Notes
A member of the RNA family "c-di-AMP riboswitch aptamer (ydaO/yuaA leader)" from Streptomyces armeniacus, 191 nucleotides long.
RNA sequence: AGGGAAAUAGCGCACCAGUCACUCGGCAGGAGCGGGGGAACCAGGUAAGUGCCGUGCCGCAGCUCAGCGGCCCGGCUAGGGGUGAAGCCAUGCCUCCAACACCCUGCCCACACAAGGGUUUACGGGAGAUAUGGCCGGGCCACUCCAGCCCGAAUCCGACAGCUCACCUCGCAGGCGCCAGGAGAGGACAC
Numbered sequence: 001a002g003g004g005a006a007a008u009a010g011c012g013c014a015c016c017a018g019u020c021a022c023u024c025g026g027c028a029g030g031a032g033c034g035g036g037g038g039a040a041c042c043a044g045g046u047a048a049g050u051g052c053c054g055u056g057c058c059g060c061a062g063c064u065c066a067g068c069g070g071c072c073c074g075g076c077u078a079g080g081g082g083u084g085a086a087g088c089c090a091u092g093c094c095u096c097c098a099a100c101a102c103c104c105u106g107c108c109c110a111c112a113c114a115a116g117g118g119u120u121u122a123c124g125g126g127a128g129a130u131a132u133g134g135c136c137g138g139g140c141c142a143c144u145c146c147a148g149c150c151c152g153a154a155u156c157c158g159a160c161a162g163c164u165c166a167c168c169u170c171g172c173a174g175g176c177g178c179c180a181g182g183a184g185a186g187g188a189c190a191c
Stems, first nucleotide, its partner, number of pairs: 011177003015174001019031002032172006042079001080157003088134004137151004
Description
The base pairs follow the family's consensus structure.